mir-3473 microRNA precursor family: a 74-nucleotide RNA from Jaculus jaculus.
Pairs were carried over by alignment from the consensus structure, which was predicted with RNAalifold.
It scores 74 bits against the family's covariance model.
Rfam 15.1 lists 1,094 matches to the family in 20 species.

RNA sequence: ACUGCUAAGCCAUCUCUCCAGCCCCAAUAAUUUUUUUUUUAUUAGAUGGAGAGCUGGAGAGGUGGCUUAGCAGU
Numbered sequence: 001a002c003u004g005c006u007a008a009g010c011c012a013u014c015u016c017u018c019c020a021g022c023c024c025c026a027a028u029a030a031u032u033u034u035u036u037u038u039u040u041a042u043u044a045g046a047u048g049g050a051g052a053g054c055u056g057g058a059g060a061g062g063u064g065g066c067u068u069a070g071c072a073g074u
Base pairs, nucleotide, nucleotide: 002073003072004071005070006069007068008067009066010065011064012063013062014061015060016059017058018057019056020055021054022053024051